[Rfam]
RNA sequence: CCUCCCGCUUUUCCUCCCUGAGCGGGCGCCUUGAUGUGUGACAGCAAAAAGGCUUCCCACCCCGGCCCGCAAGUGCCGGGGCUUUUUUUU
Numbered sequence: 001c002c003u004c005c006c007g008c009u010u011u012u013c014c015u016c017c018c019u020g021a022g023c024g025g026g027c028g029c030c031u032u033g034a035u036g037u038g039u040g041a042c043a044g045c046a047a048a049a050a051g052g053c054u055u056c057c058c059a060c061c062c063c064g065g066c067c068c069g070c071a072a073g074u075g076c077c078g079g080g081g082c083u084u085u086u087u088u089u090u
Base pairs, nucleotide, nucleotide: 004026005025006024007023008022009021028053029052030051031050032049060081061080062079063078064077065076066075